[Rfam]
RNA sequence: UAGGGCAGUCAGGGCCAGGAACCCCCCACUGAGCCUAGGUUAACUCUUACUGUUGGGGGGCA
Numbered sequence: 001u002a003g004g005g006c007a008g009u010c011a012g013g014g015c016c017a018g019g020a021a022c023c024c025c026c027c028a029c030u031g032a033g034c035c036u037a038g039g040u041u042a043a044c045u046c047u048u049a050c051u052g053u054u055g056g057g058g059g060g061c062a
Base pairs, nucleotide, nucleotide: 008041010039012036013035014034015033016031017030018029022060023059024058025057026056027055
Notes: Shown here is a 62-nucleotide sequence from Jaculus jaculus, a member of the family "Gag/pol translational readthrough site". NCBI's taxonomy places the organism under Eukaryota, Teleostomi, Mammalia, Myomorpha, Jaculus. It scores 70 bits against the family's covariance model. The literature on the family includes a 1990 paper in Virus Genes by ten Dam et al., "RNA pseudoknots: translational frameshifting and readthrough on viral RNAs". The family's consensus secondary structure is taken from published work. It is annotated as a cis-regulatory element.